[Rfam]
Rfam assigns this 53-nucleotide RNA sequence from Celeribacter indicus to the family "ffh sRNA". NCBI's taxonomy places the organism under Bacteria, Pseudomonadota, Alphaproteobacteria, Rhodobacterales, Celeribacter. A search with the family's covariance model found it, with a score of 58 bits. Pairs were carried over by alignment from the consensus structure, which is taken from published work.
RNA sequence: UGAGGCCAGGAUCGCCCCCCGUCAGCGCGUUGCGCCCACGGGGGCAACCUGUG
Numbered sequence: 001u002g003a004g005g006c007c008a009g010g011a012u013c014g015c016c017c018c019c020c021g022u023c024a025g026c027g028c029g030u031u032g033c034g035c036c037c038a039c040g041g042g043g044g045c046a047a048c049c050u051g052u053g
Base pairs, nucleotide, nucleotide: 016044017043018042019041020040021039022038025035026034027033028032